[Rfam]
RNA sequence: GCUGAGCUGGGUUACUCCAGCUUGUGACCCAAGUGGGAGCAUCAAUGUGAUGGAACAACAUUCAGACUUGCUGGGUUGGGCUGUGUUUGCAAUAUGCUGGCCUGCCCAUUCCAAGUUGAGAGUUGAGUCUGGGGACUUUGGUGAAGGCUAAGGUCUCUUGGCUCUUAGAGUGGAGGGCACAGCGUGAGGCUGGUUUCACAGAGCAGCGACCACCUCCCAUUCCCAACAGAUAGUGGAAGGAUCACAGGCUGCUGCAUCCAUUGCUCAUAAUGGCCUAGUGAGUCUAUUCUGCUUGUGGACCAUCAUCACUUUU
Dot-bracket structure: (((((((((((....))))))))....(((....))))))...((.(((((((..((.((...(((.((((((((((((((.(((..((..(.....(((((((.((.(((((.((((.((((.(((((.((((((((((((....)))))))))))).)))))(....).(((((......(((....(((......)))....)))....))))).)))).))))......)))))))....))))))).).))..))).)))).....)))))))))).)))....))....)).....))))))).)).
Numbered sequence: 001g002c003u004g005a006g007c008u009g010g011g012u013u014a015c016u017c018c019a020g021c022u023u024g025u026g027a028c029c030c031a032a033g034u035g036g037g038a039g040c041a042u043c044a045a046u047g048u049g050a051u052g053g054a055a056c057a058a059c060a061u062u063c064a065g066a067c068u069u070g071c072u073g074g075g076u077u078g079g080g081c082u083g084u085g086u087u088u089g090c091a092a093u094a095u096g097c098u099g100g101c102c103u104g105c106c107c108a109u110u111c112c113a114a115g116u117u118g119a120g121a122g123u124u125g126a127g128u129c130u131g132g133g134g135a136c137u138u139u140g141g142u143g144a145a146g147g148c149u150a151a152g153g154u155c156u157c158u159u160g161g162c163u164c165u166u167a168g169a170g171u172g173g174a175g176g177g178c179a180c181a182g183c184g185u186g187a188g189g190c191u192g193g194u195u196u197c198a199c200a201g202a203g204c205a206g207c208g209a210c211c212a213c214c215u216c217c218c219a220u221u222c223c224c225a226a227c228a229g230a231u232a233g234u235g236g237a238a239g240g241a242u243c244a245c246a247g248g249c250u251g252c253u254g255c256a257u258c259c260a261u262u263g264c265u266c267a268u269a270a271u272g273g274c275c276u277a278g279u280g281a282g283u284c285u286a287u288u289c290u291g292c293u294u295g296u297g298g299a300c301c302a303u304c305a306u307c308a309c310u311u312u313u
Stems, first nucleotide, its partner, number of pairs: 001040003004023008028037003044312002047309007056297002059291002064285003068281010078266004083261003088256002092253001098251007106240002109238005115227004120222004125164005131158012165170001172217005183208003190201003

Source information
Rfam assigns this 313-nucleotide RNA from Phaseolus vulgaris to the family "Plant signal recognition particle RNA". The source organism's lineage runs through Eukaryota, Streptophyta, Magnoliopsida, Pentapetalae and Phaseolus. It is annotated as a non-coding RNA gene.